[Rfam]
RNA sequence: UAAAUUGAAUCUUUAAAAUAAAGUUUUAUAUUAUUGAUGUUGGUUUUCCAACUACGACGAUAAACGAAUUUCGUAAUAAACAUUGCGGACGUGGGGGCAGUACCCACCACCUCCACCAUUGACAAUUUAUGGGGGUGAACCAGAAUCGACGAGUGUCUAAAGGCUAUUCUUUCGUUCGGGAUUGUUCCGUCGUUAUCGGGCUAAAUUAUAAUUGCAAAUGAUAAAUUUGCUCUCGCUGCUUAAUUAAUUUAAGAAAGCGCGGUCUGGGGCACCGGGCAACAGAACGCCCCUAG
Numbered sequence: 001u002a003a004a005u006u007g008a009a010u011c012u013u014u015a016a017a018a019u020a021a022a023g024u025u026u027u028a029u030a031u032u033a034u035u036g037a038u039g040u041u042g043g044u045u046u047u048c049c050a051a052c053u054a055c056g057a058c059g060a061u062a063a064a065c066g067a068a069u070u071u072c073g074u075a076a077u078a079a080a081c082a083u084u085g086c087g088g089a090c091g092u093g094g095g096g097g098c099a100g101u102a103c104c105c106a107c108c109a110c111c112u113c114c115a116c117c118a119u120u121g122a123c124a125a126u127u128u129a130u131g132g133g134g135g136u137g138a139a140c141c142a143g144a145a146u147c148g149a150c151g152a153g154u155g156u157c158u159a160a161a162g163g164c165u166a167u168u169c170u171u172u173c174g175u176u177c178g179g180g181a182u183u184g185u186u187c188c189g190u191c192g193u194u195a196u197c198g199g200g201c202u203a204a205a206u207u208a209u210a211a212u213u214g215c216a217a218a219u220g221a222u223a224a225a226u227u228u229g230c231u232c233u234c235g236c237u238g239c240u241u242a243a244u245u246a247a248u249u250u251a252a253g254a255a256a257g258c259g260c261g262g263u264c265u266g267g268g269g270c271a272c273c274g275g276g277c278a279a280c281a282g283a284a285c286g287c288c289c290c291u292a293g
Stems, first nucleotide, its partner, number of pairs: 039052005056176005066169004072163001081155003086151002091107005108137007177192003182203001184201001186200003260274004266290005
Shown here is a 293-nucleotide RNA, a member of the family "Alphaproteobacteria transfer-messenger RNA". The family is grouped with related families in Rfam's "tRNA clan". Bacterial tmRNA, also known as 10Sa RNA or SsrA, is named for its dual tRNA and mRNA-like properties. Rfam classes the family as a non-coding RNA gene. Rfam links the family to the GO term RNA catabolic process. A reference for the family is Williams and Bartel (1996), "Phylogenetic analysis of tmRNA secondary structure", RNA. It is one of the family's seed sequences.